[Rfam]
RNA: Small nucleolar RNA SNORD18
RNA sequence: GAGAUAUGAUGAGCAACAUUGGUCCGUGUUUCUGAAUUAACCGUGACUGAAACUUCCAUAUUAGCACACUCUGAUCUC
Numbered sequence: 001g002a003g004a005u006a007u008g009a010u011g012a013g014c015a016a017c018a019u020u021g022g023u024c025c026g027u028g029u030u031u032c033u034g035a036a037u038u039a040a041c042c043g044u045g046a047c048u049g050a051a052a053c054u055u056c057c058a059u060a061u062u063a064g065c066a067c068a069c070u071c072u073g074a075u076c077u078c
Base pairs, nucleotide, nucleotide: 001078002077003076004075